Rfam assigns this 85-nucleotide sequence from Punica granatum to the family "small nucleolar RNA snoR117".
RNA sequence: GGCCUGUGAUGCGAGAAAUUGUCCGUACCAUCUGAGAGUAUUCUCUGAUCGAUACAAAAUUAUCAUCUCUAGCUUUCUGAGGCCU
Number, nucleotide and partner (000 for none) at each position: 001g084002g083003c082004c081005u000006g000007u000008g000009a000010u000011g000012c000013g000014a000015g000016a000017a000018a000019u000020u000021g000022u000023c000024c000025g000026u000027a000028c000029c000030a000031u000032c000033u000034g000035a000036g000037a000038g000039u000040a000041u000042u000043c000044u000045c000046u000047g000048a000049u000050c000051g000052a000053u000054a000055c000056a000057a000058a000059a000060u000061u000062a000063u000064c000065a000066u000067c000068u000069c000070u000071a000072g000073c000074u000075u000076u000077c000078u000079g000080a000081g004082g003083c002084c001085u000

Pairs were carried over by alignment from the consensus structure, which was predicted with RNAalifold. Rfam links the family to the GO terms nucleolus and RNA processing. For this family Rfam cites "Mining small RNA sequencing data: a new approach to identify small nucleolar RNAs in Arabidopsis" (Chen and Wu, Nucleic Acids Res, 2009). The match comes from Rfam's covariance-model search (76 bits).